The record is a 145-nucleotide RNA from Triticum turgidum, which matches "small nucleolar RNA snoR135" in Rfam.
The family's RNA type in Rfam is H/ACA-box small nucleolar RNA.
The literature on the family includes a 2009 paper in Nucleic Acids Res by Chen and Wu, "Mining small RNA sequencing data: a new approach to identify small nucleolar RNAs in Arabidopsis".
The family's consensus secondary structure was predicted with RNAalifold.
Rfam links the family to the GO terms RNA processing and nucleolus.
RNA sequence: CAUGUAGGAUAAGUGUGUAUCGGUCAGGUGCUUUUUGAUGUGCAUUUAUUACUGAAAGUGUUUCCUGCUAUAUUAAUUUUUGGAAAGUGGGCAGUUGGGUUGAGCUUCAUUAUCUCUUUUGCCAACAAUCAUUUUCCUCUCAUUU
Dot-bracket structure: ...((((((.....((((((...................)))))).................)))))).............(((((((((...((((.........................))))..)))))))))........